[Rfam]
Description:
Shown here is an 80-nucleotide RNA sequence from Caenorhabditis brenneri, a member of the family "SmY spliceosomal RNA". NCBI's taxonomy places the organism under Eukaryota, Metazoa, Ecdysozoa, Rhabditina, Caenorhabditis. A search with the family's covariance model found it, with a score of 66 bits. For this family Rfam cites "A novel family of C. elegans snRNPs contains proteins associated with trans-splicing" (MacMorris et al., RNA, 2007). Pairs were carried over by alignment from the consensus structure, which is taken from published work. The family has 61 seed sequences and 408 matches in Rfam 15.1.
RNA sequence: AUGUAAUUCAAAUACCUCUCAGGGCUUUGAAUAAGACCCAAUGAACAAUUUUUUGAGACCCUAUUCUCAGUAAUAGGGUG
Numbered sequence: 001a002u003g004u005a006a007u008u009c010a011a012a013u014a015c016c017u018c019u020c021a022g023g024g025c026u027u028u029g030a031a032u033a034a035g036a037c038c039c040a041a042u043g044a045a046c047a048a049u050u051u052u053u054u055g056a057g058a059c060c061c062u063a064u065u066c067u068c069a070g071u072a073a074u075a076g077g078g079u080g
Base pairs, nucleotide, nucleotide: 022039023038024037026035027034028033058079059078060077061076062075063074064073065072